This 128-nucleotide sequence from Martelella endophytica belongs to the Rfam family "Alphaproteobacterial ar14". The base pairs follow the family's consensus structure. The organism belongs to Martelella, within Bacteria. From the family's description: Smr14C2 was renamed NfeR1 (Nodule Formation Efficiency RNA) highly expressed in salt stress and during the symbiotic interaction on legume roots. By type it is a small RNA. On this family, see del Val et al., RNA Biol 2012: "A survey of sRNA families in alpha-proteobacteria".
[Rfam]
RNA sequence: CAAAUUCGGAGUGGCAUUCUCCUCCUCCUCCCAAUGCCCUUCGAUAGGUCAGCGAUACUCCUCCUCCUCCCUUCGCUGACCACCCAAAUGACGCUCACCGGAUCCUCCUCCCCCGGUGAGCGUUAUUU
Numbered sequence: 001c002a003a004a005u006u007c008g009g010a011g012u013g014g015c016a017u018u019c020u021c022c023u024c025c026u027c028c029u030c031c032c033a034a035u036g037c038c039c040u041u042c043g044a045u046a047g048g049u050c051a052g053c054g055a056u057a058c059u060c061c062u063c064c065u066c067c068u069c070c071c072u073u074c075g076c077u078g079a080c081c082a083c084c085c086a087a088a089u090g091a092c093g094c095u096c097a098c099c100g101g102a103u104c105c106u107c108c109u110c111c112c113c114c115g116g117u118g119a120g121c122g123u124u125a126u127u128u
Stems, first nucleotide, its partner, number of pairs: 007043003011039001013038005047081009091123011
Dot-bracket structure: ......(((.(.(((((................)))))).)))...(((((((((.................))))))))).........(((((((((((...........))))))))))).....